[Rfam]
RNA: Staphylococcus sRNA71 small RNA
Organism: Staphylococcus warneri
RNA sequence: AUUCAUGAUAUUAUAUACAUGUAGUUAAUAAGUAACUACAAAGUCUUUUAUAUUCAUGAACAUAAUACUCCUGGAUGGCGUUACCCAGCGUCAUCCUCUUUUUU
Dot-bracket structure: ..((((((...((((.(..((((((((.....))))))))......).)))).)))))).............((((((((........))))))))........
Numbered sequence: 001a002u003u004c005a006u007g008a009u010a011u012u013a014u015a016u017a018c019a020u021g022u023a024g025u026u027a028a029u030a031a032g033u034a035a036c037u038a039c040a041a042a043g044u045c046u047u048u049u050a051u052a053u054u055c056a057u058g059a060a061c062a063u064a065a066u067a068c069u070c071c072u073g074g075a076u077g078g079c080g081u082u083a084c085c086c087a088g089c090g091u092c093a094u095c096c097u098c099u100u101u102u103u104u
Stems, first nucleotide, its partner, number of pairs: 003059006012052004017047001020040008073096008